[Rfam]
RNA sequence: CCCGUACGGGUUAUCCACGGGUUGGAAUGUGGGCCGGCUGACCGGUCUGAACCAGGAA
Numbered sequence: 001c002c003c004g005u006a007c008g009g010g011u012u013a014u015c016c017a018c019g020g021g022u023u024g025g026a027a028u029g030u031g032g033g034c035c036g037g038c039u040g041a042c043c044g045g046u047c048u049g050a051a052c053c054a055g056g057a058a
Stems, first nucleotide, its partner, number of pairs: 001021005023054003031048005
Rfam assigns this 58-nucleotide RNA sequence from Halovivax asiaticus to the family "eL15-Euryarchaeota ribosomal protein leader". On this family, see Eckert and Weinberg, BMC Microbiol 2020: "Discovery of 20 novel ribosomal leader candidates in bacteria and archaea".